[Rfam]
RNA: Group II catalytic intron D1-D4-3
RNA sequence: UCUAUCGCGAGGUAGAAUCUGAAGGAAGCCGGCGGCAAAUCUCCGGCCCGAGGAACACGAACCUCAUAUGAGGCUGGCAUUCGUUGGAUGAGGCUGCAUGACAAGUCAAAGUCCUUACUGCCGAAGGCGAAUGAGAGUAAAUGAGGCGGGUAGAUGGAGAGGAAGAUAACGCU
Number, nucleotide and partner (000 for none) at each position: 001u016002c015003u014004a013005u012006c011007g000008c000009g000010a000011g006012g005013u004014a003015g002016a001017a000018u000019c000020u000021g000022a000023a000024g000025g000026a000027a000028g173029c000030c171031g170032g000033c000034g000035g000036c165037a000038a000039a000040u160041c159042u158043c157044c156045g155046g151047c150048c149049c148050g147051a000052g000053g000054a000055a000056c000057a000058c000059g000060a000061a000062c146063c145064u144065c143066a142067u141068a000069u000070g000071a000072g000073g138074c137075u136076g000077g000078c133079a132080u131081u130082c129083g128084u000085u000086g114087g113088a112089u111090g000091a000092g107093g106094c105095u104096g000097c000098a000099u000100g000101a000102c000103a000104a095105g094106u093107c092108a000109a000110a000111g089112u088113c087114c086115u000116u000117a000118c000119u000120g000121c000122c000123g000124a000125a000126g000127g000128c083129g082130a081131a080132u079133g078134a000135g000136a075137g074138u073139a000140a000141a067142u066143g065144a064145g063146g062147c050148g049149g048150g047151u046152a000153g000154a000155u045156g044157g043158a042159g041160a040161g000162g000163a000164a000165g036166a000167u000168a000169a000170c031171g030172c000173u028